[Rfam]
Nucleotides: 052
Base pairs, nucleotide, nucleotide: 016044017043018042019041020040021039022038025035026034027033028032
Number, partner (000 for none) and nucleotide at each position: 001000a002000g003000c004000a005000c006000c007000g008000g009000a010000g011000g012000u013000c014000a015000a016044c017043a018042u019041c020040c021039g022038a023000c024000a025035g026034c027033g028032c029000g030000a031000u032028g033027c034026g035025c036000c037000c038022u039021c040020g041019g042018g043017u044016g045000u046000c047000g048000u049000u050000u051000g052000g

Record summary: The record is a 52-nucleotide RNA from Parahoeflea halophila, which matches "ffh sRNA" in Rfam. Taxonomically the source falls in Parahoeflea (Bacteria, Pseudomonadota, Alphaproteobacteria, Hyphomicrobiales). The family's RNA type in Rfam is small RNA. On this family, see Meyer et al., BMC Genomics 2009: "Identification of candidate structured RNAs in the marine organism 'Candidatus Pelagibacter ubique'".